A member of the RNA family "mir-3660 microRNA precursor family" from Nannospalax galili, 82 nucleotides long. Lineage of the source: Eukaryota > Mammalia > Theria > Spalacinae > Nannospalax. Pairs were carried over by alignment from the consensus structure, which was predicted with RNAalifold.

[Rfam]
RNA sequence: GCCGCACAAAAUUAAAAUGCUCUUCUGUCGCUGUAAUAGUUCAUAUGGGCUGUGACAGGAGAGCAUUUUAAUUUUGUCAAGU
Dot-bracket structure: ((...(((((.(((((((((((((((((((..((.(((.....)))..))..))))))))))))))))))).)))))...))